[Rfam]
RNA: MIR390 microRNA precursor family
Organism: Momordica charantia
RNA sequence: CGGGAGAAUCUGCAAAGCUCAGGAGGGAUAGCGCCAUUCUCUCGCUGCCGCCGUGGCGCUAUCUAUCCUGAGUUUCAUGGGUUCUUCUU
Numbered sequence: 001c002g003g004g005a006g007a008a009u010c011u012g013c014a015a016a017g018c019u020c021a022g023g024a025g026g027g028a029u030a031g032c033g034c035c036a037u038u039c040u041c042u043c044g045c046u047g048c049c050g051c052c053g054u055g056g057c058g059c060u061a062u063c064u065a066u067c068c069u070g071a072g073u074u075u076c077a078u079g080g081g082u083u084c085u086u087c088u089u
Base pairs, nucleotide, nucleotide: 010080016074017073018072019071020070021069022068023067024066026064027063028062029061030060031059032058033057034056035055036054037053